This 209-nucleotide RNA from Paenibacillus lactis belongs to the Rfam family "Bacillus sRNA ncr1575". The base pairs follow the family's consensus structure, which is taken from published work. Taxonomically the source falls in Paenibacillus lactis (Bacteria, Bacillati, Paenibacillaceae, Paenibacillus). The literature on the family includes a 2010 paper in Nucleic Acids Res by Irnov et al., "Identification of regulatory RNAs in Bacillus subtilis". The sequence is in the family's curated seed alignment.
RNA sequence: GAACAUAAUGAUGAGAGGACUGAUGGAUGGACAAUGGUUAACUAAUCUAUAUUUUUAUUUGAGUUGAAUAACUUCCAAAUACAAAAUAUAGGGUUAGUCUAUCCAUUUCUAUAAAUCAGUGUACAUGUCAUGAAUUUAAUGGCAAACUACAAACUUAUUUAUGAAAAUUAACGGCUAAUCCUUCCAUAUCCAUUUGGGAGGAUUUUUUA
Numbered sequence: 001g002a003a004c005a006u007a008a009u010g011a012u013g014a015g016a017g018g019a020c021u022g023a024u025g026g027a028u029g030g031a032c033a034a035u036g037g038u039u040a041a042c043u044a045a046u047c048u049a050u051a052u053u054u055u056u057a058u059u060u061g062a063g064u065u066g067a068a069u070a071a072c073u074u075c076c077a078a079a080u081a082c083a084a085a086a087u088a089u090a091g092g093g094u095u096a097g098u099c100u101a102u103c104c105a106u107u108u109c110u111a112u113a114a115a116u117c118a119g120u121g122u123a124c125a126u127g128u129c130a131u132g133a134a135u136u137u138a139a140u141g142g143c144a145a146a147c148u149a150c151a152a153a154c155u156u157a158u159u160u161a162u163g164a165a166a167a168u169u170a171a172c173g174g175c176u177a178a179u180c181c182u183u184c185c186a187u188a189u190c191c192a193u194u195u196g197g198g199a200g201g202a203u204u205u206u207u208u209a
Stems, first nucleotide, its partner, number of pairs: 016110003024105004030099003043096006049089006057080005062073004118159003121155001122153001126149001177204010188194001